[Rfam]
RNA sequence: AAUUAAAUAAGGCCUAAUUCCUAAGGGGAAACGGGGGAACCACUUUUUGGGGUGAAUCGCAUCUUAUGCGUAGAGCGUGCGCUCGAAUCCGUCAGCUAACCUCGUAAGCUAGCUCGCACAAGAAGU
Numbered sequence: 001a002a003u004u005a006a007a008u009a010a011g012g013c014c015u016a017a018u019u020c021c022u023a024a025g026g027g028g029a030a031a032c033g034g035g036g037g038a039a040c041c042a043c044u045u046u047u048u049g050g051g052g053u054g055a056a057u058c059g060c061a062u063c064u065u066a067u068g069c070g071u072a073g074a075g076c077g078u079g080c081g082c083u084c085g086a087a088u089c090c091g092u093c094a095g096c097u098a099a100c101c102u103c104g105u106a107a108g109c110u111a112g113c114u115c116g117c118a119c120a121a122g123a124a125g126u
Stems, first nucleotide, its partner, number of pairs: 011110003018030003031105006041049002050090003058070004073084004